[Rfam]
RNA sequence: CUUGGCGGUGGUGUAGCGAUCGGGGACGUCCGAAGAACUCACCGAGCACCCGGGCGCCAAGGAUGACACCAAGUCCUGGCAGG
Numbered sequence: 001c002u003u004g005g006c007g008g009u010g011g012u013g014u015a016g017c018g019a020u021c022g023g024g025g026a027c028g029u030c031c032g033a034a035g036a037a038c039u040c041a042c043c044g045a046g047c048a049c050c051c052g053g054g055c056g057c058c059a060a061g062g063a064u065g066a067c068a069c070c071a072a073g074u075c076c077u078g079g080c081a082g083g
Stems, first nucleotide, its partner, number of pairs: 009044005018039001020037001021035001025031001056080003060077005
The record is an 83-nucleotide RNA from Rhodococcus jostii, which matches "Actinobacteria sRNA Ms_AS-4" in Rfam. It is one of the family's seed sequences. The family's RNA type in Rfam is small RNA. The source organism's lineage runs through Bacteria, Bacillati, Mycobacteriales, Nocardiaceae and Rhodococcus jostii.